A member of the RNA family "S10-Clostridia ribosomal protein leader" from Oceanobacillus sp. J11TS1, 100 nucleotides long. A reference for the family is Eckert and Weinberg (2020), "Discovery of 20 novel ribosomal leader candidates in bacteria and archaea", BMC Microbiol. It is annotated as a cis-regulatory leader. NCBI's taxonomy places the organism under Bacteria, Bacilli, Caryophanales, Bacillaceae, Oceanobacillus.
RNA sequence: UUAAUGCGAUGAUGCGGAAGGUUGUUGGCACACCCGGCCCCUUUGCCAUGGCGGAGUGCCGAGGAAUUUUCGCGGAGAAUGUCUAUAAUCAUAUAGGCGA
Numbered sequence: 001u002u003a004a005u006g007c008g009a010u011g012a013u014g015c016g017g018a019a020g021g022u023u024g025u026u027g028g029c030a031c032a033c034c035c036g037g038c039c040c041c042u043u044u045g046c047c048a049u050g051g052c053g054g055a056g057u058g059c060c061g062a063g064g065a066a067u068u069u070u071c072g073c074g075g076a077g078a079a080u081g082u083c084u085a086u087a088a089u090c091a092u093a094u095a096g097g098c099g100a
Stems, first nucleotide, its partner, number of pairs: 014073003018070004025062007080099008